[Rfam]
RNA: Archaeal large subunit ribosomal RNA, nucleotides 673 to 943
Organism: Candidatus Calditenuaceae archaeon HR02
RNA sequence: GAGUUCACGGGUGUGGCGAGCCUAAGGGCUGAAAGCCCGUAGGCGUGGGGAAACCGACAUGCCCGCAGCCGGAGUGUGCUCCGGCGAGGGGCGGGGUCUGAAAGGGCCUGUAGUCACGCCCGUGAGGCUAGAAACCGGGCGAUCUAGCCCUGGGCAGGGCGAAGCCAGGGGAAACCCUGGUGGAGGCCCGAAUAGGGGUCUUGAUGUGCAAAUCGGUCCCCUGACCUGGGGCUAGGGGUUAAAAGCUAAUCGAGCCCGGUGAUAGCUAGUU
Number, nucleotide and partner (000 for none) at each position: 001g000002a000003g000004u000005u125006c124007a123008c122009g121010g120011g119012u118013g117014u116015g115016g114017c113018g000019a000020g044021c043022c042023u041024a000025a000026g038027g037028g036029c035030u000031g000032a000033a000034a000035g029036c028037c027038c026039g000040u000041a023042g022043g021044c020045g000046u000047g000048g055049g054050g000051a000052a000053a000054c049055c048056g000057a000058c000059a000060u000061g092062c091063c090064c089065g000066c000067a000068g085069c084070c083071g082072g081073a080074g079075u000076g000077u000078g000079c074080u073081c072082c071083g070084g069085c068086g000087a000088g000089g064090g063091g062092c061093g000094g000095g108096g107097u106098c105099u000100g000101a000102a000103a000104g000105g098106g097107c096108c095109u000110g000111u000112a000113g017114u016115c015116a014117c013118g012119c011120c010121c009122g008123u007124g006125a005126g000127g000128c269129u268130a000131g266132a000133a000134a000135c259136c258137g257138g256139g255140c254141g000142a000143u000144c235145u234146a233147g232148c231149c230150c229151u228152g227153g226154g225155c223156a000157g189158g188159g187160c186161g000162a000163a000164g181165c180166c179167a178168g177169g176170g175171g000172a000173a000174a000175c170176c169177c168178u167179g166180g165181u164182g000183g000184a000185g000186g160187c159188c158189c157190g000191a000192a000193u000194a000195g220196g219197g218198g217199u000200c216201u215202u000203g214204a213205u000206g000207u000208g000209c000210a000211a000212a000213u204214c203215g201216g200217u198218c197219c196220c195221c000222u000223g155224a000225c154226c153227u152228g151229g150230g149231g148232c147233u146234a145235g144236g000237g247238g246239u245240u000241a000242a000243a000244a000245g239246c238247u237248a000249a000250u000251c000252g000253a000254g140255c139256c138257c137258g136259g135260u000261g000262a000263u000264a000265g000266c131267u000268a129269g128270u000271u000